Record summary: Rfam assigns this 200-nucleotide RNA from Striga hermonthica to the family "Small nucleolar RNA Z112". Rfam 15.1 lists 427 matches to the family in 103 species. The organism belongs to Striga, within Eukaryota. It is annotated as a C/D-box small nucleolar RNA.
[Rfam]
RNA sequence: UAACCGAUGAGGAAGAAUUCCCAGAGUAUAGGAAGUGCCGUAUGACACUCAAACACAGCGUUUUCGUCCCCGAUUUUCACCUCUCCCAUCCGCCGGCGUCCAUGGUUUUUGUCUAUGUGGCGAAAUCUUGUCCGCCGGUCGGGACCGCGUGGAUUUCGGCGGCGGCUGUGUGCGUGAUUUGGAACGGGUCUCUGAGGUUU
Numbered sequence: 001u002a003a004c005c006g007a008u009g010a011g012g013a014a015g016a017a018u019u020c021c022c023a024g025a026g027u028a029u030a031g032g033a034a035g036u037g038c039c040g041u042a043u044g045a046c047a048c049u050c051a052a053a054c055a056c057a058g059c060g061u062u063u064u065c066g067u068c069c070c071c072g073a074u075u076u077u078c079a080c081c082u083c084u085c086c087c088a089u090c091c092g093c094c095g096g097c098g099u100c101c102a103u104g105g106u107u108u109u110u111g112u113c114u115a116u117g118u119g120g121c122g123a124a125a126u127c128u129u130g131u132c133c134g135c136c137g138g139u140c141g142g143g144a145c146c147g148c149g150u151g152g153a154u155u156u157c158g159g160c161g162g163c164g165g166c167u168g169u170g171u172g173c174g175u176g177a178u179u180u181g182g183a184a185c186g187g188g189u190c191u192c193u194g195a196g197g198u199u200u
Base pairs, nucleotide, nucleotide: 002199003198004197005196084153085152086151088150089149091147092146093138094137095136096135097134098133104127105126106125107124108123110122111121112120113119